[Rfam]
About this RNA: A member of the RNA family "Cyanobacterial functional RNA 1" from Gloeomargaritaceae cyanobacterium C42_A2020_066, 65 nucleotides long. It scores 48 bits against the family's covariance model. The literature on the family includes a 2005 paper in Genome Biol by Axmann et al., "Identification of cyanobacterial non-coding RNAs by comparative genome analysis".
RNA sequence: GCGGAGACGCAAGUUUCCGUUCACUCCUCACACCACACUUGGGCCUAGGCUUGUGCUUAGGCUUU
Numbered sequence: 001g002c003g004g005a006g007a008c009g010c011a012a013g014u015u016u017c018c019g020u021u022c023a024c025u026c027c028u029c030a031c032a033c034c035a036c037a038c039u040u041g042g043g044c045c046u047a048g049g050c051u052u053g054u055g056c057u058u059a060g061g062c063u064u065u
Stems, first nucleotide, its partner, number of pairs: 001020008042063007
Dot-bracket structure: ((((((((....)))))))).....................(((((((........)))))))..